This 117-nucleotide sequence from Glycine max belongs to the Rfam family "MIR1520 microRNA precursor family". Its family is annotated with RISC complex and miRNA-mediated post-transcriptional gene silencing in the Gene Ontology. The match comes from Rfam's covariance-model search (104 bits). Its Rfam clan is "MIR1520 microRNA precursor clan". Lineage of the source: Eukaryota > Mesangiospermae > Pentapetalae > Phaseoleae > Glycine subgen. Soja.
RNA sequence: UUCUUAUUAGAUGAUUACUAUCACGUGUCAUGUUCUGAUUGGUCCAUAAUAAUAAUGCAUUUCAUUUUCCAUGGAUUCGACAUCCAAUCAGAACAUGACACAUAACAGUCAUCAUCU
Numbered sequence: 001u002u003c004u005u006a007u008u009a010g011a012u013g014a015u016u017a018c019u020a021u022c023a024c025g026u027g028u029c030a031u032g033u034u035c036u037g038a039u040u041g042g043u044c045c046a047u048a049a050u051a052a053u054a055a056u057g058c059a060u061u062u063c064a065u066u067u068u069c070c071a072u073g074g075a076u077u078c079g080a081c082a083u084c085c086a087a088u089c090a091g092a093a094c095a096u097g098a099c100a101c102a103u104a105a106c107a108g109u110c111a112u113c114a115u116c117u
Base pairs, nucleotide, nucleotide: 021105023103025101026100029097030096031095033093034092035091036090038088039087040086041085042084